[Rfam]
Nucleotides: 070
Base pairs, nucleotide, nucleotide: 005066006065007064008063009062010061011060012059013058014057017054018053019052021050022049023048024047
Number, partner (000 for none) and nucleotide at each position: 001000a002000a003000c004000u005066u006065g007064g008063g009062a010061u011060g012059c013058a014057u015000u016000u017054u018053g019052u020000u021050c022049a023048g024047u025000c026000a027000u028000g029000u030000c031000a032000a033000c034000g035000u036000g037000a038000u039000a040000c041000u042000c043000c044000a045000u046000c047024a048023c049022u050021g051000g052019g053018c054017a055000a056000a057014g058013u059012g060011u061010g062009u063008c064007u065006c066005a067000a068000g069000a070000a